[Rfam]
RNA: skipping-rope RNA
RNA sequence: GAUUAUUGAAGUAGAGAUUGUGCUGCUACGCACCUACUGGGUCAAAAGAAAUGCGGGAAAGGGCACACCCGCCAAUAAUC
Dot-bracket structure: ((((((((..((((.....[[[[[.)))).(((((...)))).....)....(((((....]]]]].)))))))))))))